[Rfam]
RNA sequence: UGCAUUUAUUCUUACACAAUACGAGUAAUAUUAUGGUUUUCAUCACAAAACACCACACAUUUUGCGUCAUUAUUCACUAUUUAU
Numbered sequence: 001u002g003c004a005u006u007u008a009u010u011c012u013u014a015c016a017c018a019a020u021a022c023g024a025g026u027a028a029u030a031u032u033a034u035g036g037u038u039u040u041c042a043u044c045a046c047a048a049a050a051c052a053c054c055a056c057a058c059a060u061u062u063u064g065c066g067u068c069a070u071u072a073u074u075c076a077c078u079a080u081u082u083a084u
Stems, first nucleotide, its partner, number of pairs: 006028006063076002066073001
Source information:
This 84-nucleotide RNA from Listeria monocytogenes belongs to the Rfam family "Listeria sRNA rli34". Rfam classes the family as a small RNA. Rfam's curators put it in the seed alignment.